[Rfam]
RNA sequence: CAAAAUUACAUAACAUUCACUCAUAUAAUAGCAGGAAUAUGGCCUGCAAGUUUCUACCAGAUUACCGUAAAUGAUCUGACUAUGAGAAGCAAUCUAGUAAAU
Number, nucleotide and partner (000 for none) at each position: 001c000002a000003a000004a000005a000006u000007u000008a000009c000010a000011u000012a000013a000014c000015a000016u000017u000018c000019a000020c086021u085022c084023a083024u082025a081026u000027a000028a000029u049030a000031g047032c046033a045034g044035g043036a000037a000038u000039a000040u000041g000042g000043c035044c034045u033046g032047c031048a000049a029050g000051u000052u000053u000054c000055u000056a000057c000058c078059a077060g076061a075062u074063u073064a072065c000066c000067g000068u000069a000070a000071a000072u064073g063074a062075u061076c060077u059078g058079a000080c000081u025082a024083u023084g022085a021086g020087a000088a000089g000090c000091a000092a000093u000094c000095u000096a000097g000098u000099a000100a000101a000102u000
The record is a 102-nucleotide sequence from Rummeliibacillus stabekisii, which matches "Purine riboswitch aptamer" in Rfam.
NCBI's taxonomy places the organism under Bacteria, Bacillota, Bacilli, Caryophanales, Rummeliibacillus.
A search with the family's covariance model found it, with a score of 89 bits.